This 198-nucleotide RNA sequence from Oryza sativa belongs to the Rfam family "MIR159 microRNA precursor family". The source organism's lineage runs through Eukaryota, Tracheophyta, commelinids, Oryzeae and Oryza sativa. It is one of the family's seed sequences. The base pairs follow the family's consensus structure, which was predicted with WAR.

RNA sequence: AUGGAUGGAAGAGAGCGUCCUUCAGUCCACUCAUGGGCGGUGCUAGGGUCGAAUUAGCUGCCGACUCAUUCACCCACAUGCCAAGCAAGAAACGCUUGAGAUAGCGAAGCUUAGCAGAUGAGUGAAUGAAGCGGGAGGUAACGUUCCGAUCUCGCGCCGUCUUUGCUUGGACUGAAGGGUGCUCCCUCCUCCUCGAUC
Numbered sequence: 001a002u003g004g005a006u007g008g009a010a011g012a013g014a015g016c017g018u019c020c021u022u023c024a025g026u027c028c029a030c031u032c033a034u035g036g037g038c039g040g041u042g043c044u045a046g047g048g049u050c051g052a053a054u055u056a057g058c059u060g061c062c063g064a065c066u067c068a069u070u071c072a073c074c075c076a077c078a079u080g081c082c083a084a085g086c087a088a089g090a091a092a093c094g095c096u097u098g099a100g101a102u103a104g105c106g107a108a109g110c111u112u113a114g115c116a117g118a119u120g121a122g123u124g125a126a127u128g129a130a131g132c133g134g135g136a137g138g139u140a141a142c143g144u145u146c147c148g149a150u151c152u153c154g155c156g157c158c159g160u161c162u163u164u165g166c167u168u169g170g171a172c173u174g175a176a177g178g179g180u181g182c183u184c185c186c187u188c189c190u191c192c193u194c195g196a197u198c
Base pairs, nucleotide, nucleotide: 013184014183015182016181017180018179019178020177023174024173025172026171027170028169029168036161058137059136061134062133063132067128068127069126070125075120